[Rfam]
RNA sequence: GUGGUUGCCAGGUGGGGCCUCUCUACUAGUGCUGUGCAGAGGCUUUUGCUGAGGCUUCUGUGAGAUUGUAGUGUUUCCCCCUGGGCCAUAGAGCCGG
Number, nucleotide and partner (000 for none) at each position: 001g000002u096003g095004g094005u093006u092007g086008c085009c084010a082011g081012g000013u000014g080015g079016g078017g077018c000019c000020u000021c073022u000023c071024u070025a069026c068027u000028a067029g066030u000031g000032c064033u063034g000035u000036g061037c060038a059039g058040a000041g056042g055043c054044u053045u052046u051047u000048g000049c000050u000051g046052a045053g044054g043055c042056u041057u000058c039059u038060g037061u036062g000063a033064g032065a000066u029067u028068g026069u025070a024071g023072u000073g021074u000075u000076u000077c017078c016079c015080c014081c011082u010083g000084g009085g008086c007087c000088a000089u000090a000091g000092a006093g005094c004095c003096g002097g000